[Rfam]
RNA sequence: GGGCACCUACGGGGGCCUAAACACCAGCGGCCCAUAAGGGCUGCACGAAGCAAACGGAAGACAGAAA
Dot-bracket structure: ((((.(((...)))))))........(((((((....))))))).......................
RNA: L2-Alphaproteobacteria ribosomal protein leader